The record is a 116-nucleotide RNA from Clostridium estertheticum, which matches "SAM riboswitch aptamer (S box leader)" in Rfam. The literature on the family includes a 2003 paper in Proc Natl Acad Sci U S A by Epshtein et al., "The riboswitch-mediated control of sulfur metabolism in bacteria". Rfam describes the family as follows. The SAM riboswitch is found upstream of a number of genes which code for proteins involved in methionine or cysteine biosynthesis in Gram-positive bacteria. The source organism's lineage runs through Bacteria, Bacillati, Bacillota, Clostridiaceae and Clostridium. It scores 92 bits against the family's covariance model. Rfam links the family to the GO term regulation of gene expression.
RNA sequence: UUCUUAUCAAGAGAGGUGGAGGGACUGGCCCUAUGAAACCCAACAACCGGCAUUCUCAUUCGAAUGUAACGGUGUUAAUUCCUGCAGAAAUGAAAUAUAUUUCUGGAAGAUAAGAA
Number, nucleotide and partner (000 for none) at each position: 001u116002u115003c114004u113005u112006a111007u110008c109009a000010a000011g000012a000013g041014a000015g040016g039017u038018g000019g000020a000021g031022g030023g029024a000025c084026u000027g082028g081029c023030c022031c021032u000033a000034u000035g000036a000037a000038a017039c016040c015041c013042a076043a075044c074045a073046a000047c072048c071049g000050g067051c066052a065053u064054u063055c000056u000057c000058a000059u000060u000061c000062g000063a054064a053065u052066g051067u050068a000069a000070c000071g048072g047073u045074g044075u043076u042077a000078a000079u000080u108081c028082c027083u000084g025085c105086a104087g103088a102089a101090a100091u099092g098093a000094a000095a000096u000097a000098u092099a091100u090101u089102u088103c087104u086105g085106g000107a000108a080109g008110a007111u006112a005113a004114g003115a002116a001